[Rfam]
RNA sequence: GGGGGUGGAUCGGGCCUGGUGGCCUGCCUGGACUUCAAAUCCAGUCGGCGCGUGGGUUAGACCCGGGCGCGGUGGGUUCGAUUCCCACACACUCCC
Numbered sequence: 001g002g003g004g005g006u007g008g009a010u011c012g013g014g015c016c017u018g019g020u021g022g023c024c025u026g027c028c029u030g031g032a033c034u035u036c037a038a039a040u041c042c043a044g045u046c047g048g049c050g051c052g053u054g055g056g057u058u059a060g061a062c063c064c065g066g067g068c069g070c071g072g073u074g075g076g077u078u079c080g081a082u083u084c085c086c087a088c089a090c091a092c093u094c095c096c
Stems, first nucleotide, its partner, number of pairs: 001096007008088001011026006028044005048070004073087004